RNA sequence: AGUAUUGUAAACGGGAAUACUCAUAUAAUCGCAAGAAUAAGGCUUGCGAGUUUCUACCAGAUACCUUAAAUAUCUGACUAUGAGAAUGGACUUUUAAAGG
Numbered sequence: 001a002g003u004a005u006u007g008u009a010a011a012c013g014g015g016a017a018u019a020c021u022c023a024u025a026u027a028a029u030c031g032c033a034a035g036a037a038u039a040a041g042g043c044u045u046g047c048g049a050g051u052u053u054c055u056a057c058c059a060g061a062u063a064c065c066u067u068a069a070a071u072a073u074c075u076g077a078c079u080a081u082g083a084g085a086a087u088g089g090a091c092u093u094u095u096a097a098a099g100g
Stems, first nucleotide, its partner, number of pairs: 018086001020084006029049007058076006
Dot-bracket structure: .................(.((((((...(((((((.......)))))))........((((((.......))))))..)))))).)..............
RNA: Purine riboswitch aptamer